This 73-nucleotide RNA from Ladona fulva belongs to the Rfam family "mir-1 microRNA precursor family". The base pairs follow the family's consensus structure, which was predicted with RNAalifold. NCBI's taxonomy places the organism under Eukaryota, Metazoa, Arthropoda, Hexapoda, Ladona. A search with the family's covariance model found it, with a score of 49 bits. Rfam describes the family as follows. This family represents the microRNA (miRNA) mir-1 family. miRNAs are transcribed as ~70nt precursors (modelled here) and subsequently processed by the Dicer enzyme to give a ~22nt product. In this case the mature sequence comes from the 3' arm of the precursor. For this family Rfam cites "microRNAs: tiny regulators with great potential" (Ambros, Cell, 2001).
[Rfam]
RNA sequence: AAUUAAAAUGCGUACUUCGUAUUUUCCACAAGUUUAUUGAACUUGUGGAAAAUACGAAGUACGCAUUUCAAUU
Numbered sequence: 001a002a003u004u005a006a007a008a009u010g011c012g013u014a015c016u017u018c019g020u021a022u023u024u025u026c027c028a029c030a031a032g033u034u035u036a037u038u039g040a041a042c043u044u045g046u047g048g049a050a051a052a053u054a055c056g057a058a059g060u061a062c063g064c065a066u067u068u069c070a071a072u073u
Stems, first nucleotide, its partner, number of pairs: 007067018026048005